mir-9256 microRNA precursor family: a 67-nucleotide RNA from Cnephaeus nilssonii. The match comes from Rfam's covariance-model search (83 bits).
RNA sequence: CUACACACUGAGUGGCCAGAUUAUUAUGUGUUCAGAGAUCAUAAUAACCUGGCCACUCAGUGUGUGU
Numbered sequence: 001c002u003a004c005a006c007a008c009u010g011a012g013u014g015g016c017c018a019g020a021u022u023a024u025u026a027u028g029u030g031u032u033c034a035g036a037g038a039u040c041a042u043a044a045u046a047a048c049c050u051g052g053c054c055a056c057u058c059a060g061u062g063u064g065u066g067u
Stems, first nucleotide, its partner, number of pairs: 004064014019049001021047008